[Rfam]
A member of the RNA family "Purine riboswitch aptamer" from Salinicoccus roseus, 102 nucleotides long. A search with the family's covariance model found it, with a score of 89 bits. The base pairs follow the family's consensus structure, which is taken from published work.

RNA sequence: CAUCUUAAAUAUUGAAGCACUCAUAUAAUCGCAGGGAUAUGGCCUGCAAGUUUCUACCGGGAUACCGUAAAUGUCCCGACUAUGUGUGAGUAACUUUCGUGG
Numbered sequence: 001c002a003u004c005u006u007a008a009a010u011a012u013u014g015a016a017g018c019a020c021u022c023a024u025a026u027a028a029u030c031g032c033a034g035g036g037a038u039a040u041g042g043c044c045u046g047c048a049a050g051u052u053u054c055u056a057c058c059g060g061g062a063u064a065c066c067g068u069a070a071a072u073g074u075c076c077c078g079a080c081u082a083u084g085u086g087u088g089a090g091u092a093a094c095u096u097u098c099g100u101g102g
Stems, first nucleotide, its partner, number of pairs: 018088003022084004029049001031047005058078007